[Rfam]
RNA sequence: CCAUCAUCAGUAGGUUUUAACUUACUUUGUUAUAUAAGUAAAGUAAAAUCAAUCCUGAAGUCAAGUAUGAUGGUUGGAGUCUCCGGACCAAGAAAAUGCAUCCGUUCCGUCUUCAGCGAAGAAUUGAGUGGCUUUCCCGGUCGUUGACUUUUUUCCAUGGGUCAAGGAUGGGAUUGUCUCCCAGACAUUU
Numbered sequence: 001c002c003a004u005c006a007u008c009a010g011u012a013g014g015u016u017u018u019a020a021c022u023u024a025c026u027u028u029g030u031u032a033u034a035u036a037a038g039u040a041a042a043g044u045a046a047a048a049u050c051a052a053u054c055c056u057g058a059a060g061u062c063a064a065g066u067a068u069g070a071u072g073g074u075u076g077g078a079g080u081c082u083c084c085g086g087a088c089c090a091a092g093a094a095a096a097u098g099c100a101u102c103c104g105u106u107c108c109g110u111c112u113u114c115a116g117c118g119a120a121g122a123a124u125u126g127a128g129u130g131g132c133u134u135u136c137c138c139g140g141u142c143g144u145u146g147a148c149u150u151u152u153u154u155c156c157a158u159g160g161g162u163c164a165a166g167g168a169u170g171g172g173a174u175u176g177u178c179u180c181c182c183a184g185a186c187a188u189u190u
Base pairs, nucleotide, nucleotide: 013050014049015048016047017046018045019044022041023040024039025038026037027036055116056115057114058113059112060111062109069102070101071100072099073097074096075095079088080087081086128180130178131177132176136172137171138170139169142167144165145164146163147162148161149160150159
RNA: small nucleolar RNA snR99